[Rfam]
RNA sequence: GAAAGGCGAUGAAGCGAAAGGUUGUUGGCACACCCGGCCCCUUUGCCAUGGGAGGGAGCUAAGAAAAUUUUCGCGGAGAAUGUCUAUUAUUUUAAAUGGGCGA
Numbered sequence: 001g002a003a004a005g006g007c008g009a010u011g012a013a014g015c016g017a018a019a020g021g022u023u024g025u026u027g028g029c030a031c032a033c034c035c036g037g038c039c040c041c042u043u044u045g046c047c048a049u050g051g052g053a054g055g056g057a058g059c060u061a062a063g064a065a066a067a068u069u070u071u072c073g074c075g076g077a078g079a080a081u082g083u084c085u086a087u088u089a090u091u092u093u094a095a096a097u098g099g100g101c102g103a
Base pairs, nucleotide, nucleotide: 014074015073016072018071019070020069021068025062026061027060028059029058081102082101083100084099085098086097087096088095
RNA: S10-Clostridia ribosomal protein leader